[Rfam]
RNA: FMN riboswitch aptamer (RFN element)
Organism: Proteiniclasticum aestuarii
RNA sequence: UAGCGUCUUCAGGGCGGGGUGUAAUUCCCCACCGGUGGUAUAGCCCACGAACCGCAAGGUUGAUUCGGUGUAACUCCGAAGCCGACAGUUAAAGUCUGGAUGGAAGAAGAAUGAU
Numbered sequence: 001u002a003g004c005g006u007c008u009u010c011a012g013g014g015c016g017g018g019g020u021g022u023a024a025u026u027c028c029c030c031a032c033c034g035g036u037g038g039u040a041u042a043g044c045c046c047a048c049g050a051a052c053c054g055c056a057a058g059g060u061u062g063a064u065u066c067g068g069u070g071u072a073a074c075u076c077c078g079a080a081g082c083c084g085a086c087a088g089u090u091a092a093a094g095u096c097u098g099g100a101u102g103g104a105a106g107a108a109g110a111a112u113g114a115u
Stems, first nucleotide, its partner, number of pairs: 006110005017029003031095002033084002035048004043082002051060003064080005086098003